[Rfam]
RNA: Molybdenum/Tungsten riboswitch aptamer (Moco RNA motif)
Organism: Alkalibaculum bacchi
Nucleotides: 149
Stems, first nucleotide, its partner, number of pairs: 003143001006140001013133004019053004024048006033040002057082007065074003083126002
Number, partner (000 for none) and nucleotide at each position: 001000u002000a003143a004000a005000u006140a007000u008000a009000a010000u011000a012000a013133c014132u015131c016130c017000g018000a019053g020052u021051u022050g023000c024048u025047c026046a027045a028044c029043c030000u031000a032000a033040g034039g035000g036000a037000u038000a039034c040033u041000a042000u043029g044028g045027u046026u047025g048024a049000u050022u051021g052020a053019c054000c055000g056000u057082g058081g059080g060079u061078a062077a063076g064000u065074u066073u067072g068000g069000a070000a071000a072067c073066g074065a075000c076063c077062u078061u079060g080059c081058c082057u083126u084125c085000c086000g087000a088000a089000u090000g091000a092000c093000c094000g095000a096000g097000a098000g099000a100000a101000a102000u103000g104000a105000a106000a107000g108000g109000u110000a111000u112000u113000u114000c115000u116000u117000g118000a119000g120000g121000a122000u123000u124000u125084g126083a127000a128000a129000a130016g131015g132014a133013g134000a135000a136000g137000a138000u139000a140006u141000u142000g143003u144000u145000a146000u147000g148000a149000u